[Rfam]
RNA sequence: GAUUAUUGCCCCAAUAGUAAUACCGCUUAGUACGAGAGGAACCGCAGUUUCAGAUAAUUGGUUUUUGCAGCUGUCUGACCAGGCAGUACCACAAAGCUACCAUCUGCUGGAUUAUAGCUAAACGCCUCUAAGUCAGAAUCCAUACCAGAAAGGGGUGAGUUCCGCCUGCACAUUAAUAUCAGAUAUAAAUAGGCCUUUGGCCCAGAACCUGAGCAGACUGGCAACGACAGUCCCUACAAAGUUAGGGCUAUUAGCUAGUAUAUUGCAAUUUUACAGUGCGUAGGAUUAAAUCCUUUGCAGACAACUUAGUUGUCUAGCUAGGUCGUAUAAGUAGUUAAGUAGCCUUGUAGUUACAAGCUACUAAGCGUAAGCCCACCGCUAGCUUAGUUAAG
Numbered sequence: 001g002a003u004u005a006u007u008g009c010c011c012c013a014a015u016a017g018u019a020a021u022a023c024c025g026c027u028u029a030g031u032a033c034g035a036g037a038g039g040a041a042c043c044g045c046a047g048u049u050u051c052a053g054a055u056a057a058u059u060g061g062u063u064u065u066u067g068c069a070g071c072u073g074u075c076u077g078a079c080c081a082g083g084c085a086g087u088a089c090c091a092c093a094a095a096g097c098u099a100c101c102a103u104c105u106g107c108u109g110g111a112u113u114a115u116a117g118c119u120a121a122a123c124g125c126c127u128c129u130a131a132g133u134c135a136g137a138a139u140c141c142a143u144a145c146c147a148g149a150a151a152g153g154g155g156u157g158a159g160u161u162c163c164g165c166c167u168g169c170a171c172a173u174u175a176a177u178a179u180c181a182g183a184u185a186u187a188a189a190u191a192g193g194c195c196u197u198u199g200g201c202c203c204a205g206a207a208c209c210u211g212a213g214c215a216g217a218c219u220g221g222c223a224a225c226g227a228c229a230g231u232c233c234c235u236a237c238a239a240a241g242u243u244a245g246g247g248c249u250a251u252u253a254g255c256u257a258g259u260a261u262a263u264u265g266c267a268a269u270u271u272u273a274c275a276g277u278g279c280g281u282a283g284g285a286u287u288a289a290a291u292c293c294u295u296u297g298c299a300g301a302c303a304a305c306u307u308a309g310u311u312g313u314c315u316a317g318c319u320a321g322g323u324c325g326u327a328u329a330a331g332u333a334g335u336u337a338a339g340u341a342g343c344c345u346u347g348u349a350g351u352u353a354c355a356a357g358c359u360a361c362u363a364a365g366c367g368u369a370a371g372c373c374c375a376c377c378g379c380u381a382g383c384u385u386a387g388u389u390a391a392g
Stems, first nucleotide, its partner, number of pairs: 006158007015147001017145002020050001022048002025045002051106005059099003066093002070089001071086006108142003115135001117133003165284005171278001289389003293309002297305001314382005321373002324367002331361004336357001339354005
Overview
A member of the RNA family "Eukaryotic large subunit ribosomal RNA" from Amniculicola lignicola, 392 nucleotides of a longer RNA. A search with the family's covariance model found it, with a score of 2970 bits. The organism belongs to Amniculicola lignicola, within Eukaryota. Rfam 15.1 lists 107,465 matches to the family in 2,616 species. Gene Ontology terms of the family: structural constituent of ribosome and ribosome.